[Rfam]
RNA sequence: UUCUGGCAUAAUCUCAGCUGGCAACUGUGAGCAGUCUAGCAUCCCUCUCACGGCGGCCUCUGAGGUUCUGCUAAAC
Numbered sequence: 001u002u003c004u005g006g007c008a009u010a011a012u013c014u015c016a017g018c019u020g021g022c023a024a025c026u027g028u029g030a031g032c033a034g035u036c037u038a039g040c041a042u043c044c045c046u047c048u049c050a051c052g053g054c055g056g057c058c059u060c061u062g063a064g065g066u067u068c069u070g071c072u073a074a075a076c
Stems, first nucleotide, its partner, number of pairs: 004073004010067008020058003026052006

Shown here is a 76-nucleotide sequence from Chanos chanos, a member of the family "mir-216 microRNA precursor family". It scores 60 bits against the family's covariance model. Pairs were carried over by alignment from the consensus structure, which was predicted with WAR. Lineage of the source: Eukaryota > Deuterostomia > Otomorpha > Ostariophysi > Chanos.